[Rfam]
RNA sequence: AGUGGGAGCCUACUUGCUCUUUAUUGAGCGAUGGGUGACUGCGUACCUUUUGUAUAAUGG
Numbered sequence: 001a002g003u004g005g006g007a008g009c010c011u012a013c014u015u016g017c018u019c020u021u022u023a024u025u026g027a028g029c030g031a032u033g034g035g036u037g038a039c040u041g042c043g044u045a046c047c048u049u050u051u052g053u054a055u056a057a058u059g060g
Base pairs, nucleotide, nucleotide: 002042003041004040005039008036009035010034011033012032046059048057
Rfam assigns this 60-nucleotide part of an RNA from Endozoicomonas montiporae to the family "Bacterial large subunit ribosomal RNA".